[Rfam]
RNA sequence: GUAAUAGGCUUGCCCGGAAAAUUUGACUAUUAUUAAUAAUGGCACAAAUUUUUAAAAAACAUUGGAUUAAUUGCAAGAAUAUCAACACCCUGCUGUUUGCUUGGUAAUUUGCAGCGAAGUUUAUCUUAGUAUUAUUAUUAGAGUAGAGAGAUCUCCUCACAAACCCCGCAAGCUUGCGGGGGUUUGGGCCCCCGCCCCCGAAGGGGGACGGGGUCCCUCGAAAGUGAUGAGUUCUCCUCGCUACUCCCCUCCAGCUUCGCUGAAGGGGAGGAAUGAUAUGAGAUAAAAACGUUCAACGACUAUUAGGUGAGUAAUACUAACAAUAAUCCUAUAUAAAUAUCCAAUACUUACUUACCACUAAUAUGGCAUUACGGAUAUUAAAGAUUAGAUCUUUAAUAAUAGUAAGCUAUUUUAAACUAAGUAGGUAAAGACAUAGUCUGGACAGUAUAGUAAUAUACUG
Numbered sequence: 001g002u003a004a005u006a007g008g009c010u011u012g013c014c015c016g017g018a019a020a021a022u023u024u025g026a027c028u029a030u031u032a033u034u035a036a037u038a039a040u041g042g043c044a045c046a047a048a049u050u051u052u053u054a055a056a057a058a059a060c061a062u063u064g065g066a067u068u069a070a071u072u073g074c075a076a077g078a079a080u081a082u083c084a085a086c087a088c089c090c091u092g093c094u095g096u097u098u099g100c101u102u103g104g105u106a107a108u109u110u111g112c113a114g115c116g117a118a119g120u121u122u123a124u125c126u127u128a129g130u131a132u133u134a135u136u137a138u139u140a141g142a143g144u145a146g147a148g149a150g151a152u153c154u155c156c157u158c159a160c161a162a163a164c165c166c167c168g169c170a171a172g173c174u175u176g177c178g179g180g181g182g183u184u185u186g187g188g189c190c191c192c193c194g195c196c197c198c199c200g201a202a203g204g205g206g207g208a209c210g211g212g213g214u215c216c217c218u219c220g221a222a223a224g225u226g227a228u229g230a231g232u233u234c235u236c237c238u239c240g241c242u243a244c245u246c247c248c249c250u251c252c253a254g255c256u257u258c259g260c261u262g263a264a265g266g267g268g269a270g271g272a273a274u275g276a277u278a279u280g281a282g283a284u285a286a287a288a289a290c291g292u293u294c295a296a297c298g299a300c301u302a303u304u305a306g307g308u309g310a311g312u313a314a315u316a317c318u319a320a321c322a323a324u325a326a327u328c329c330u331a332u333a334u335a336a337a338u339a340u341c342c343a344a345u346a347c348u349u350a351c352u353u354a355c356c357a358c359u360a361a362u363a364u365g366g367c368a369u370u371a372c373g374g375a376u377a378u379u380a381a382a383g384a385u386u387a388g389a390u391c392u393u394u395a396a397u398a399a400u401a402g403u404a405a406g407c408u409a410u411u412u413u414a415a416a417c418u419a420a421g422u423a424g425g426u427a428a429a430g431a432c433a434u435a436g437u438c439u440g441g442a443c444a445g446u447a448u449a450g451u452a453a454u455a456u457a458c459u460g
Stems, first nucleotide, its partner, number of pairs: 001013004021051001061345005067339001072113006082104004114292002120286002127280002296439001298438005347425008445458005
RNA: Group I catalytic intron
Organism: Sordaria macrospora